[Rfam]
RNA sequence: GCUCUGACUGCUUAGUAGAGCACACUCUCGCACAAUGCGAGGGCUGGGGAAUGGUCAUCCUCGGCAAAUAUUCAUCGGGUGCUUGACCACAUCCGGCGCCU
Numbered sequence: 001g002c003u004c005u006g007a008c009u010g011c012u013u014a015g016u017a018g019a020g021c022a023c024a025c026u027c028u029c030g031c032a033c034a035a036u037g038c039g040a041g042g043g044c045u046g047g048g049g050a051a052u053g054g055u056c057a058u059c060c061u062c063g064g065c066a067a068a069u070a071u072u073c074a075u076c077g078g079g080u081g082c083u084u085g086a087c088c089a090c091a092u093c094c095g096g097c098g099c100c101u
Base pairs, nucleotide, nucleotide: 001021002020003019004018005017006016026042027041028040029039030038031037043065044064045063046062047061048060049059050058075096076095077094078093079092080091081090

Rfam assigns this 101-nucleotide RNA sequence to the family "engA RNA".